Group II catalytic intron D1-D4-6: a 234-nucleotide RNA sequence from Roseburia hominis.
Gene Ontology term of the family: Group II intron splicing.
The pairing is the family consensus, mapped onto this sequence.
The source organism's lineage runs through Bacteria, Bacillota, Lachnospirales, Roseburia and Roseburia hominis.
Nucleotides: 234
Stems, first nucleotide, its partner, number of pairs: 011035004018030003022203001025200001038087002042084001044082003047078002049073005055067002058065002120228001121226001123225006145219003150216002152178003157172004183214011
Number, partner (000 for none) and nucleotide at each position: 001000a002000a003000a004000a005000u006000c007000c008000u009000a010000u011035c012034a013033g014032g015000u016000a017000a018030g019029g020028u021000c022203u023000a024000a025200c026000c027000a028020a029019c030018c031000g032014c033013c034012u035011g036000u037000a038087c039086c040000g041000a042084g043000u044082c045081c046080u047078u048077g049073g050072a051071g052070c053069c054000g055067a056066a057000g058065c059064g060000g061000u062000a063000a064059c065058g066056u067055u068000a069053g070052g071051u072050u073049u074000a075000a076000g077048c078047g079000u080046a081045g082044g083000a084042c085000a086039g087038g088000g089000a090000g091000c092000a093000a094000c095000a096000g097000a098000g099000c100000c101000g102000a103000a104000a105000c106000g107000a108000a109000a110000g111000u112000g113000a114000a115000g116000u117000g118000a119000u120228u121226g122000a123225g124224c125223u126222g127221g128220g129000a130000a131000a132000u133000u134000a135000u136000u137000a138000u139000g140000a141000g142000g143000u144000u145219g146218g147217a148000a149000a150216u151215g152178g153177u154176c155000g156000a157172u158171g159170u160169g161000u162000u163000c164000u165000u166000a167000u168000u169160c170159a171158c172157a173000g174000c175000a176154g177153a178152c179000a180000a181000u182000a183214u184213c185212g186211u187210u188209g189208u190207a191206a192205c193204c194000g195000u196000u197000a198000g199000g200025g201000c202000g203022a204193g205192g206191u207190u208189a209188u210187g211186a212185u213184g214183g215151c216150a217147u218146c219145c220128c221127c222126c223125a224124g225123u226121c227000a228120g229000a230000g231000a232000a233000c234000u